This 75-nucleotide RNA sequence from Haemonchus placei belongs to the Rfam family "mir-5928 microRNA precursor family". Its family is annotated with RISC complex and miRNA-mediated post-transcriptional gene silencing in the Gene Ontology. The family's consensus secondary structure was predicted with RNAalifold. It scores 64 bits against the family's covariance model.

RNA sequence: GGCCCAAUUUUGAAGUACAGUAGAAUAGUAGGAUCAGCUAACCUUACUUAUCUACCCUGCUUCAGAUUCGGGCCC
Numbered sequence: 001g002g003c004c005c006a007a008u009u010u011u012g013a014a015g016u017a018c019a020g021u022a023g024a025a026u027a028g029u030a031g032g033a034u035c036a037g038c039u040a041a042c043c044u045u046a047c048u049u050a051u052c053u054a055c056c057c058u059g060c061u062u063c064a065g066a067u068u069c070g071g072g073c074c075c
Base pairs, nucleotide, nucleotide: 001074002073003072004071005070007068009066011064012063013062014061015060016059017058020055021054022053023052027048028047029046030045032043034041